[Rfam]
RNA sequence: GCCCUAUUGACGGAUUGAACGGCAACCGAUAGCAAGAAUCGGGUAGGGU
Numbered sequence: 001g002c003c004c005u006a007u008u009g010a011c012g013g014a015u016u017g018a019a020c021g022g023c024a025a026c027c028g029a030u031a032g033c034a035a036g037a038a039u040c041g042g043g044u045a046g047g048g049u
Base pairs, nucleotide, nucleotide: 001049002048003047004046005045006044007043011021012020017033023036026042027041028040029039030038
Dot-bracket structure: (((((((...((....[..)).{..(((((..]..}.))))))))))))